The record is a 58-nucleotide RNA sequence from alpha proteobacterium U9-1i, which matches "terC RNA" in Rfam. Pairs were carried over by alignment from the consensus structure, which is taken from published work. The match comes from Rfam's covariance-model search (45 bits). Lineage of the source: Bacteria > Pseudomonadati > Pseudomonadota > Alphaproteobacteria. The family's RNA type in Rfam is cis-regulatory element.
RNA sequence: UCCGGCAGCCGGGCCCCUCUGGUCAUGGGACUAUCCAUGGCGAUGUCGGUUGACGCGA
Numbered sequence: 001u002c003c004g005g006c007a008g009c010c011g012g013g014c015c016c017c018u019c020u021g022g023u024c025a026u027g028g029g030a031c032u033a034u035c036c037a038u039g040g041c042g043a044u045g046u047c048g049g050u051u052g053a054c055g056c057g058a
Base pairs, nucleotide, nucleotide: 006052007051008050009049010048011047012046022041023040024039025038026037027036028035029034